[Rfam]
RNA sequence: CUCAGGAUACCGUGCUUCUAUGCAUCCCAUAUUUCCGAUUUUAAAUCUAUAUGGAAUGUGUUGAAGUAUGGAACUCUGGC
Number, nucleotide and partner (000 for none) at each position: 001c000002u000003c000004a000005g000006g000007a000008u073009a000010c071011c070012g069013u068014g067015c066016u065017u064018c063019u000020a061021u060022g059023c058024a057025u056026c000027c054028c053029a052030u051031a050032u000033u000034u000035c000036c000037g000038a000039u000040u000041u000042u000043a000044a000045a000046u000047c000048u000049a000050u031051a030052u029053g028054g027055a000056a025057u024058g023059u022060g021061u020062u000063g018064a017065a016066g015067u014068a013069u012070g011071g010072a000073a008074c000075u000076c000077u000078g000079g000080c000
The family of this 80-nucleotide RNA sequence from Araneus ventricosus is "mir-1 microRNA precursor family".
Pairs were carried over by alignment from the consensus structure, which was predicted with RNAalifold.
Rfam links the family to the GO terms RISC complex and miRNA-mediated post-transcriptional gene silencing.
The source organism's lineage runs through Eukaryota, Protostomia, Arachnida, Entelegynae and Araneus.
Rfam's curators write: This family represents the microRNA (miRNA) mir-1 family. miRNAs are transcribed as ~70nt precursors (modelled here) and subsequently processed by the Dicer enzyme to give a ~22nt product. In this case the mature sequence comes from the 3' arm of the precursor.
On this family, see Lee and Ambros, Science 2001: "An extensive class of small RNAs in Caenorhabditis elegans".